[Rfam]
RNA sequence: AUGACGCCGUUGGAAGAGUCCUGUUUUGCAGGCGCCGAAGGAGCAACCGUCAGGUUUGGUCGACUUGCGGGAAACUCUCAGGUACAAGAACCAUUGGCGGACA
Numbered sequence: 001a002u003g004a005c006g007c008c009g010u011u012g013g014a015a016g017a018g019u020c021c022u023g024u025u026u027u028g029c030a031g032g033c034g035c036c037g038a039a040g041g042a043g044c045a046a047c048c049g050u051c052a053g054g055u056u057u058g059g060u061c062g063a064c065u066u067g068c069g070g071g072a073a074a075c076u077c078u079c080a081g082g083u084a085c086a087a088g089a090a091c092c093a094u095u096g097g098c099g100g101a102c103a
Base pairs, nucleotide, nucleotide: 006098007097008096009095011093012092013091020032021031022030023029034083035082036081037079038078041077042076043075047070048069049068050067
Overview: A member of the RNA family "Glycine riboswitch aptamer" from a Syntrophomonadaceae bacterium, 103 nucleotides long. A search with the family's covariance model found it, with a score of 61 bits. About the family: This family represents the bacterial glycine riboswitch. Glycine riboswitches usually consist of two metabolite-binding aptamers domains with similar structures in tandem. The aptamers cooperatively bind glycine to regulate the expression of downstream genes.